[Rfam]
RNA sequence: UCGUCAGGCUCAGUCCCCUCCCGAUAAACCCCUAAAUAGGUCCUUUCCCGGAGGAGACCCCGGCUU
Numbered sequence: 001u002c003g004u005c006a007g008g009c010u011c012a013g014u015c016c017c018c019u020c021c022c023g024a025u026a027a028a029c030c031c032c033u034a035a036a037u038a039g040g041u042c043c044u045u046u047c048c049c050g051g052a053g054g055a056g057a058c059c060c061c062g063g064c065u066u
Base pairs, nucleotide, nucleotide: 003064004063005062007060008059010057011056014055015054016053018051019050023047024046026045027044031040032039033038
Background:
The record is a 66-nucleotide RNA sequence from Panthera leo, which matches "mir-484 microRNA precursor family" in Rfam. The family has 9 seed sequences and 128 matches in Rfam 15.1. The base pairs follow the family's consensus structure, which was predicted with RNAalifold. The literature on the family includes a 2010 paper in Mol Hum Reprod by Ahn et al., "MicroRNA transcriptome in the newborn mouse ovaries determined by massive parallel sequencing".